[Rfam]
Nucleotides: 086
Stems, first nucleotide, its partner, number of pairs: 004051005010045003015040002017074005024037004064080004
Number, partner (000 for none) and nucleotide at each position: 001000a002000a003000a004051a005050a006049g007048u008047c009000a010045c011044a012043u013000a014000a015040c016039u017074g018073g019072c020071g021070g022000a023000a024037g025036u026035g027034g028000a029000g030000u031000u032000u033000a034027c035026c036025a037024c038000a039016g040015g041000g042000a043012g044011u045010g046000c047008g048007a049006c050005u051004u052000g053000u054000a055000a056000a057000g058000u059000a060000a061000a062000a063000a064080u065079g066078u067077c068000g069000a070021c071020c072019g073018c074017c075000u076000g077067g078066g079065c080064a081000a082000a083000u084000g085000u086000c